RNA sequence: GGAGCCAUAGGGAGGGAUACCAAUCCAGUCUUAGGAAAAGAAACCUUCCAUGGAGUCUUGGAGAUUGGCGACAGUCCUAAUGACUUA
Numbered sequence: 001g002g003a004g005c006c007a008u009a010g011g012g013a014g015g016g017a018u019a020c021c022a023a024u025c026c027a028g029u030c031u032u033a034g035g036a037a038a039a040g041a042a043a044c045c046u047u048c049c050a051u052g053g054a055g056u057c058u059u060g061g062a063g064a065u066u067g068g069c070g071a072c073a074g075u076c077c078u079a080a081u082g083a084c085u086u087a
Base pairs, nucleotide, nucleotide: 002086003085004084006082007081008080010078011077012076013075016072018070020068021067022066023065024064025063029061030060038059039058040057041056044053045052